[Rfam]
Nucleotides: 083
Base pairs, nucleotide, nucleotide: 012037013036018031019030020029021028022027040077041076042075043074045073046072047071049067050066051065052064053063054062055061056060
Number, partner (000 for none) and nucleotide at each position: 001000g002000a003000a004000g005000a006000u007000a008000a009000a010000a011000g012037c013036c014000g015000a016000a017000c018031c019030u020029g021028c022027u023000g024000u025000a026000a027022g028021g029020c030019a031018g032000a033000g034000a035000c036013g037012g038000a039000a040077a041076g042075u043074c044000g045073c046072g047071g048000a049067u050066c051065c052064u053063g054062g055061a056060a057000c058000g059000a060056u061055u062054u063053c064052a065051g066050g067049a068000a069000a070000g071047c072046c073045g074043g075042a076041c077040u078000g079000c080000c081000g082000g083000a